RNA: ZMP/ZTP riboswitch aptamer (pfl RNA motif)
Organism: Streptomyces alboflavus
RNA sequence: UCACAGCACGGCGACUGGCGCACAGGGAAACGACCCUGGGGAAGCCGUGCGAGGCAACCCCUUCGAGGUGCCGCCCGCCUGGGCACCCCGG
Numbered sequence: 001u002c003a004c005a006g007c008a009c010g011g012c013g014a015c016u017g018g019c020g021c022a023c024a025g026g027g028a029a030a031c032g033a034c035c036c037u038g039g040g041g042a043a044g045c046c047g048u049g050c051g052a053g054g055c056a057a058c059c060c061c062u063u064c065g066a067g068g069u070g071c072c073g074c075c076c077g078c079c080u081g082g083g084c085a086c087c088c089c090g091g
Stems, first nucleotide, its partner, number of pairs: 006050007015041002017079004024037004068086005